[Rfam]
Shown here is a 146-nucleotide RNA sequence from Megasphaera micronuciformis, a member of the family "glmS glucosamine-6-phosphate activated ribozyme aptamer". Rfam describes the family as follows. This entry contains a glucosamine-6-phosphate activated ribozyme that is found in the mRNA for GlmS. GlmS is an enzyme that uses fructose-6-phosphate and glutamine to generate glucosamine-6-phosphate. NCBI's taxonomy places the organism under Bacteria, Bacillati, Veillonellales, Megasphaera, Megasphaera micronuciformis. It scores 78 bits against the family's covariance model.
RNA sequence: GAUAUAUUCUUAGCGCUGGCUCUCAUAACGGAGAGGACGAGGAAGAGGUUGUCGAGCAUUCAGCGGAUGCCUCUCGGCUCAGCCGGUCGAUAAAGGUCGUAAAAACCCGACGGUGACGACGGGGACAAAGCGGUAUAUAAGGCUAU
Numbered sequence: 001g002a003u004a005u006a007u008u009c010u011u012a013g014c015g016c017u018g019g020c021u022c023u024c025a026u027a028a029c030g031g032a033g034a035g036g037a038c039g040a041g042g043a044a045g046a047g048g049u050u051g052u053c054g055a056g057c058a059u060u061c062a063g064c065g066g067a068u069g070c071c072u073c074u075c076g077g078c079u080c081a082g083c084c085g086g087u088c089g090a091u092a093a094a095g096g097u098c099g100u101a102a103a104a105a106c107c108c109g110a111c112g113g114u115g116a117c118g119a120c121g122g123g124g125a126c127a128a129a130g131c132g133g134u135a136u137a138u139a140a141g142g143c144u145a146u
Stems, first nucleotide, its partner, number of pairs: 020035005044074005052063001054061002075089005094136001096134004106123004111118002

It is annotated as a riboswitch.